[Rfam]
RNA sequence: AACAAAUUAAUCAUUCGUCCUCAUAUAUUCUUGGUAAUAUGGUCCAAGAGUUUCUACCGGAAAGCCUUAAACUUUCUAGCUAUGAGUUGAGAGUAUUUUUCU
Numbered sequence: 001a002a003c004a005a006a007u008u009a010a011u012c013a014u015u016c017g018u019c020c021u022c023a024u025a026u027a028u029u030c031u032u033g034g035u036a037a038u039a040u041g042g043u044c045c046a047a048g049a050g051u052u053u054c055u056a057c058c059g060g061a062a063a064g065c066c067u068u069a070a071a072c073u074u075u076c077u078a079g080c081u082a083u084g085a086g087u088u089g090a091g092a093g094u095a096u097u098u099u100u101c102u
Base pairs, nucleotide, nucleotide: 020086021085022084023083024082025081029049030048031047032046033045034044059077060076061075062074063073064072
RNA: Purine riboswitch aptamer
Organism: Clostridium acetireducens